[Rfam]
RNA sequence: UUUCUGAAAAGGCAAACCUGUUGAAAGACAGGGACGCAAAGCCAUGAGUCUAAGGUUUUUGAAAGGGCUAUGACAGUCAGGCUGCCGGA
Numbered sequence: 001u002u003u004c005u006g007a008a009a010a011g012g013c014a015a016a017c018c019u020g021u022u023g024a025a026a027g028a029c030a031g032g033g034a035c036g037c038a039a040a041g042c043c044a045u046g047a048g049u050c051u052a053a054g055g056u057u058u059u060u061g062a063a064a065g066g067g068c069u070a071u072g073a074c075a076g077u078c079a080g081g082c083u084g085c086c087g088g089a
Base pairs, nucleotide, nucleotide: 012037013036017032018031019030020029021028022027040083041082042081043080045079046078047077048074049073050072055068056067057066058065

c-di-GMP-I riboswitch aptamer: an 89-nucleotide RNA sequence from Desulfoscipio gibsoniae. Rfam 15.1 lists 5,092 matches to the family in 1,772 species.